[Rfam]
RNA sequence: GUCCACAUCUUACUGGGCAGCAUUGGAGCGAAAUUAACUUCUCUAAUACUGUCAGGUAAUGAUGUACUC
Number, nucleotide and partner (000 for none) at each position: 001g000002u000003c000004c000005a065006c064007a063008u062009c061010u059011u058012a057013c056014u055015g000016g053017g052018c051019a050020g049021c000022a047023u046024u045025g044026g043027a042028g000029c000030g000031a000032a000033a000034u000035u000036a000037a000038c000039u000040u000041c000042u027043c026044u025045a024046a023047u022048a000049c020050u019051g018052u017053c016054a000055g014056g013057u012058a011059a010060u000061g009062a008063u007064g006065u005066a000067c000068u000069c000